[Rfam]
RNA sequence: GGCCUCCCAGUGCUUACCACAGGCUGUGUUCUUACACUGCCUGUAUAGAAAGAGGAGGCAGAGUAAAGCUACCCCAUGUACACCCUAGCCCAGGCCCUGUGCCUGGUGUGUAUUGUGAAUGGGGGAACAUGG
Numbered sequence: 001g002g003c004c005u006c007c008c009a010g011u012g013c014u015u016a017c018c019a020c021a022g023g024c025u026g027u028g029u030u031c032u033u034a035c036a037c038u039g040c041c042u043g044u045a046u047a048g049a050a051a052g053a054g055g056a057g058g059c060a061g062a063g064u065a066a067a068g069c070u071a072c073c074c075c076a077u078g079u080a081c082a083c084c085c086u087a088g089c090c091c092a093g094g095c096c097c098u099g100u101g102c103c104u105g106g107u108g109u110g111u112a113u114u115g116u117g118a119a120u121g122g123g124g125g126a127a128c129a130u131g132g
Base pairs, nucleotide, nucleotide: 002059003058004057005056006055007054020043021042022041026037027036028035029034072124073123074122075121076120077119086110087109090106091105092104093103094102095101
Dot-bracket structure: .((((((............(((...((((....))))...)))..........))))))............((((((........((..((((((.....))))))..))........))))))........
Source information
Small nucleolar RNA SNORA51: a 132-nucleotide RNA sequence from Prolemur simus. Rfam links the family to the GO terms RNA processing and nucleolus. About the family: ACA51 is a member of the H/ACA class of snoRNA that guide the sites of modification of uridines to pseudouridines. It is annotated as an H/ACA-box small nucleolar RNA. The match comes from Rfam's covariance-model search (144 bits).